[Rfam]
RNA sequence: AACUGGUGAUGUUUCAUUAUAUAAGAGUAGUGGACAGAAGAGAUUUCUGAAACUGAAUGGCUGAAGUU
Numbered sequence: 001a002a003c004u005g006g007u008g009a010u011g012u013u014u015c016a017u018u019a020u021a022u023a024a025g026a027g028u029a030g031u032g033g034a035c036a037g038a039a040g041a042g043a044u045u046u047c048u049g050a051a052a053c054u055g056a057a058u059g060g061c062u063g064a065a066g067u068u
Stems, first nucleotide, its partner, number of pairs: 001068004

A member of the RNA family "Small nucleolar RNA SNORD75" from Gymnodraco acuticeps, 68 nucleotides long. Lineage of the source: Eukaryota > Craniata > Clupeocephala > Eurypterygia > Gymnodraco. On this family, see Galardi et al., Mol Cell Biol 2002: "Purified box C/D snoRNPs are able to reproduce site-specific 2'-O-methylation of target RNA in vitro".